[Rfam]
RNA sequence: ACCCCCGGGCAAUGGACAAGGAGAGACACCUGAUUGGUGGUGUUGCUCUUAUAUCAAUCAGGGGCAGAGCAGACAUGCAGUCCUUAGUUCAUCCUAGCUUGAUGCCUGUCUUGGUGGCCAGAGGUGUUUCAUGCCUGAGGCACAUUU
Numbered sequence: 001a002c003c004c005c006c007g008g009g010c011a012a013u014g015g016a017c018a019a020g021g022a023g024a025g026a027c028a029c030c031u032g033a034u035u036g037g038u039g040g041u042g043u044u045g046c047u048c049u050u051a052u053a054u055c056a057a058u059c060a061g062g063g064g065c066a067g068a069g070c071a072g073a074c075a076u077g078c079a080g081u082c083c084u085u086a087g088u089u090c091a092u093c094c095u096a097g098c099u100u101g102a103u104g105c106c107u108g109u110c111u112u113g114g115u116g117g118c119c120a121g122a123g124g125u126g127u128u129u130c131a132u133g134c135c136u137g138a139g140g141c142a143c144a145u146u147u
Stems, first nucleotide, its partner, number of pairs: 002064004007059001013056003021050003025044006087141003101135001103133001107131002112126002115123001

A member of the RNA family "Small nucleolar RNA SNORA48" from Myotis myotis, 147 nucleotides long. The source organism's lineage runs through Eukaryota, Bilateria, Euteleostomi, Dipnotetrapodomorpha and Myotis. From the family's description: The snoRNA ACA 48 has been identified to guide pseudouridylation of the residue U3797 in the 28S rRNA subunit. By type it is an H/ACA-box small nucleolar RNA. A search with the family's covariance model found it, with a score of 53 bits.